Rfam assigns this 152-nucleotide sequence from Pyrrhoderma noxium to the family "Group II catalytic intron D1-D4-7". The family has 244 seed sequences and 1,296 matches in Rfam 15.1. On this family, see Bonen and Vogel, Trends Genet 2001: "The ins and outs of group II introns". The organism belongs to Pyrrhoderma, within Eukaryota. About the family: Group II introns are found in rRNA, tRNA and mRNA of organelles in fungi, plants and protists, and also in mRNA in bacteria. The match comes from Rfam's covariance-model search (50 bits).

RNA sequence: CAGUCCUGGCCAUAGGGCUGUCCCUACUUUUACAUGCGUGGCGGGCAACUACCGGGUAUGAAGCUCAAAGGACAAUGUAACAGUAAAGUGCUAGGGAAAAUACCGAACGUGGUAAACGAAAGUGAACAUAUGUAGUAAGGCUCCGUAAAAGG
Numbered sequence: 001c002a003g004u005c006c007u008g009g010c011c012a013u014a015g016g017g018c019u020g021u022c023c024c025u026a027c028u029u030u031u032a033c034a035u036g037c038g039u040g041g042c043g044g045g046c047a048a049c050u051a052c053c054g055g056g057u058a059u060g061a062a063g064c065u066c067a068a069a070g071g072a073c074a075a076u077g078u079a080a081c082a083g084u085a086a087a088g089u090g091c092u093a094g095g096g097a098a099a100a101u102a103c104c105g106a107a108c109g110u111g112g113u114a115a116a117c118g119a120a121a122g123u124g125a126a127c128a129u130a131u132g133u134a135g136u137a138a139g140g141c142u143c144c145g146u147a148a149a150a151g152g
Stems, first nucleotide, its partner, number of pairs: 002019006028069003032065001033060005039054003043050002092106001094104002108132004116123002136147002